[Rfam]
RNA sequence: AUUUGAAUAUCGGCAUUCACUCAUAUAAUCACGGGGAUAAGGCCCGUAAGUUUCUACCAGCGCACCGUAAAUGUGCUGACUAUGAGUGAGCAAUGGGAAUGC
Numbered sequence: 001a002u003u004u005g006a007a008u009a010u011c012g013g014c015a016u017u018c019a020c021u022c023a024u025a026u027a028a029u030c031a032c033g034g035g036g037a038u039a040a041g042g043c044c045c046g047u048a049a050g051u052u053u054c055u056a057c058c059a060g061c062g063c064a065c066c067g068u069a070a071a072u073g074u075g076c077u078g079a080c081u082a083u084g085a086g087u088g089a090g091c092a093a094u095g096g097g098a099a100u101g102c
Base pairs, nucleotide, nucleotide: 018088019087020086021085022084023083024082025081029049031047032046033045034044035043058078059077060076061075062074063073064072
RNA: Purine riboswitch aptamer